[Rfam]
The family of this 370-nucleotide sequence from Echinops telfairi is "Bag-1 internal ribosome entry site (IRES)".
This family represents the bag-1 internal ribosome entry site (IRES).
The family's consensus secondary structure was predicted with PFOLD.
Its family is annotated with ribosome binding in the Gene Ontology.
On this family, see Coldwell et al., Oncogene 2001: "The p36 isoform of BAG-1 is translated by internal ribosome entry following heat shock".
The source organism's lineage runs through Eukaryota, Bilateria, Craniata, Afrosoricida and Echinops.
It is one of the family's seed sequences.
RNA sequence: UCGGCGGUGGAGAAACGCGGGCCUGGCGGAGCGCGGCAGCGCGCGGAGACCUCGAGGCCGCGGGGAGCGGCCGGGGCCCCGGAGGCGCGCCCUUCGGCCAGCCCGGGAGCCGUGCCAGGUCGAGACUCCGGCCGGUCGCAAGUCUCCCCGGUCUCAGCGUCGGUCCGUGCGAAGCAAGACCAGCGGACAUGACCGAUCCACCAGGGGCUCCGCCGCCGGCGCUCGCAAGCCGCGGGUGAAGAAGAAAUCACAUCCCCGCAAGGCCAGGAGCGAGGAGAUGGCCCAGAGCAAGGAGGUGGCCCGGAGAGAGGAGAUCGCCAAGAACGAAGAGGUGGCCCCGAAAGAGGAGGCCGCCCGGAGCGCGGAGAUG
Number, nucleotide and partner (000 for none) at each position: 001u000002c000003g000004g000005c000006g000007g000008u000009g000010g000011a000012g000013a000014a000015a000016c000017g000018c000019g000020g104021g103022c000023c101024u100025g099026g098027c097028g000029g000030a000031g000032c000033g000034c000035g000036g000037c000038a093039g092040c000041g090042c089043g053044c000045g051046g050047a000048g000049a000050c046051c045052u000053c043054g000055a000056g000057g000058c000059c000060g000061c082062g000063g080064g079065g078066a000067g000068c075069g000070g000071c000072c000073g000074g000075g068076g000077c000078c065079c064080c063081g000082g061083a000084g000085g000086c000087g000088c000089g042090c041091c000092c039093u038094u000095c000096g000097g027098c026099c025100a024101g023102c000103c021104c020105g000106g000107g000108a000109g000110c000111c000112g000113u000114g000115c000116c000117a000118g000119g000120u000121c000122g000123a000124g000125a000126c000127u000128c000129c000130g000131g000132c000133c000134g000135g000136u000137c000138g000139c000140a000141a000142g351143u350144c349145u348146c347147c346148c000149c000150g000151g000152u000153c000154u000155c000156a000157g000158c000159g000160u000161c000162g000163g000164u000165c000166c000167g188168u187169g000170c185171g184172a000173a000174g000175c000176a000177a000178g000179a000180c000181c000182a000183g000184c171185g170186g000187a168188c167189a000190u000191g000192a000193c000194c000195g000196a000197u000198c000199c000200a000201c000202c000203a000204g000205g224206g223207g222208c221209u000210c219211c218212g217213c000214c000215g000216c000217c212218g211219g210220c000221g208222c207223u206224c205225g000226c000227a000228a000229g000230c000231c000232g000233c000234g000235g000236g000237u000238g000239a000240a000241g000242a000243a000244g000245a000246a000247a000248u000249c000250a000251c000252a000253u000254c000255c000256c000257c272258g271259c270260a000261a000262g000263g000264c000265c000266a000267g000268g000269a000270g259271c258272g257273a000274g000275g000276a000277g000278a000279u000280g000281g000282c000283c000284c000285a000286g000287a000288g000289c000290a000291a000292g000293g000294a000295g000296g000297u000298g000299g000300c000301c000302c000303g000304g000305a000306g000307a000308g000309a000310g000311g000312a000313g000314a000315u000316c000317g000318c000319c000320a000321a000322g000323a000324a000325c000326g000327a000328a000329g000330a000331g000332g000333u000334g000335g000336c000337c000338c000339c000340g000341a000342a000343a000344g000345a000346g147347g146348a145349g144350g143351c142352c000353g000354c000355c000356c000357g000358g000359a000360g000361c000362g000363c000364g000365g000366a000367g000368a000369u000370g000